[Rfam]
RNA sequence: AGAUCAUUCCAAAGAGGGCUCGUGGGGCUGUGAAACCAUGAGCUCUUAACACUAUGACGAAAGACUAAAGUUCUCUAUAGGAUGCCAUAGCACUCAAGGGUGCUGUUUUCGUAAGGAGAUAGAAAA
Numbered sequence: 001a002g003a004u005c006a007u008u009c010c011a012a013a014g015a016g017g018g019c020u021c022g023u024g025g026g027g028c029u030g031u032g033a034a035a036c037c038a039u040g041a042g043c044u045c046u047u048a049a050c051a052c053u054a055u056g057a058c059g060a061a062a063g064a065c066u067a068a069a070g071u072u073c074u075c076u077a078u079a080g081g082a083u084g085c086c087a088u089a090g091c092a093c094u095c096a097a098g099g100g101u102g103c104u105g106u107u108u109u110c111g112u113a114a115g116g117a118g119a120u121a122g123a124a125a126a
Base pairs, nucleotide, nucleotide: 004057005056006055007054014047015046016045017044018043019042020041021040026037027036072119073118074117075116076115079112081110082109087106088105089104090103091102092101093100094099
Dot-bracket structure: ...((((......((((((((....((........))..))))))))......))))..............(((((..(.((....((((((((....))))))))..)).)..))))).......